A member of the RNA family "Small nucleolar RNA SNORD22" from Sparus aurata, 129 nucleotides long. Gene Ontology terms of the family: nucleolus and RNA processing. It scores 62 bits against the family's covariance model. Pairs were carried over by alignment from the consensus structure, which was predicted with PFOLD. The family's RNA type in Rfam is C/D-box small nucleolar RNA. Taxonomically the source falls in Sparus (Eukaryota, Neopterygii, Clupeocephala, Spariformes). The literature on the family includes a 1996 paper in Nature by Tycowski et al., "A mammalian gene with introns instead of exons generating stable RNA products".
[Rfam]
RNA sequence: UUCCUUUGAUGACACUCGCAAACGUCUUACGCCUUGUGUAAAUGCCAGAACCUGAAAAGGUGGACCCACUGGCAUUUCCCUGGCAACAAGGUGAAGAACUGUUGGGGCUACCAACAGUCUGAAUGGAAA
Numbered sequence: 001u002u003c004c005u006u007u008g009a010u011g012a013c014a015c016u017c018g019c020a021a022a023c024g025u026c027u028u029a030c031g032c033c034u035u036g037u038g039u040a041a042a043u044g045c046c047a048g049a050a051c052c053u054g055a056a057a058a059g060g061u062g063g064a065c066c067c068a069c070u071g072g073c074a075u076u077u078c079c080c081u082g083g084c085a086a087c088a089a090g091g092u093g094a095a096g097a098a099c100u101g102u103u104g105g106g107g108c109u110a111c112c113a114a115c116a117g118u119c120u121g122a123a124u125g126g127a128a129a
Base pairs, nucleotide, nucleotide: 001128002127003126004125